[Rfam]
RNA sequence: UUUUUUAGGGAGAGUUUGGCUUUCCCACAAGGGAAGGCCAGGGAAUUUCCUC
Number, nucleotide and partner (000 for none) at each position: 001u000002u000003u000004u000005u000006u000007a000008g052009g051010g050011a000012g048013a047014g046015u042016u041017u040018g039019g038020c037021u036022u035023u034024c033025c032026c000027a000028c000029a000030a000031g000032g025033g024034a023035a022036g021037g020038c019039c018040a017041g016042g015043g000044a000045a000046u014047u013048u012049c000050c010051u009052c008
RNA: HIV Ribosomal frameshift signal